[Rfam]
RNA: Small nucleolar RNA Z279/snoR105/snoR108
RNA sequence: GGGAGAUGAGGAGUGGUAAAAUUUCGCUAUUUUUUACUGCGAGAGGGGUGCCCGCCCCAGCCAAGCCUGUUACGAUAAAUGGGGCAUCCCCGUUUCUACCAUCUGAUCCC
Numbered sequence: 001g002g003g004a005g006a007u008g009a010g011g012a013g014u015g016g017u018a019a020a021a022u023u024u025c026g027c028u029a030u031u032u033u034u035u036a037c038u039g040c041g042a043g044a045g046g047g048g049u050g051c052c053c054g055c056c057c058c059a060g061c062c063a064a065g066c067c068u069g070u071u072a073c074g075a076u077a078a079a080u081g082g083g084g085c086a087u088c089c090c091c092g093u094u095u096c097u098a099c100c101a102u103c104u105g106a107u108c109c110c
Base pairs, nucleotide, nucleotide: 001110002109003108004107014101015100016099017098018097023043024042025041026040027039045090046089047088048087049086050085051084052083067082068081069080070079